[Rfam]
RNA sequence: AUCGAGGCAGGCGAUGAAGCUCGCCCCAAUUGCCACACCGGCUGAUGGCUUCUACCACGUC
Numbered sequence: 001a002u003c004g005a006g007g008c009a010g011g012c013g014a015u016g017a018a019g020c021u022c023g024c025c026c027c028a029a030u031u032g033c034c035a036c037a038c039c040g041g042c043u044g045a046u047g048g049c050u051u052c053u054a055c056c057a058c059g060u061c
Base pairs, nucleotide, nucleotide: 010025011024012023013022016052017051018050019049020048021047032042033041034040
RNA: Fluoride riboswitch aptamer (crcB RNA motif)